The record is a 58-nucleotide sequence from Curtobacterium sp. ISL-83, which matches "msiK RNA" in Rfam. A search with the family's covariance model found it, with a score of 58 bits. NCBI's taxonomy places the organism under Bacteria, Actinomycetota, Micrococcales, Microbacteriaceae, Curtobacterium. The base pairs follow the family's consensus structure, which is taken from published work.
[Rfam]
RNA sequence: GGCUGCCGCUUCCACUACGGAUCGUCCGGCACGUACCUGCCGGUGGAAAGGACUGAAC
Numbered sequence: 001g002g003c004u005g006c007c008g009c010u011u012c013c014a015c016u017a018c019g020g021a022u023c024g025u026c027c028g029g030c031a032c033g034u035a036c037c038u039g040c041c042g043g044u045g046g047a048a049a050g051g052a053c054u055g056a057a058c
Stems, first nucleotide, its partner, number of pairs: 009050002011047004026043006
Dot-bracket structure: ........((((((...........((((((......)))))))))).))........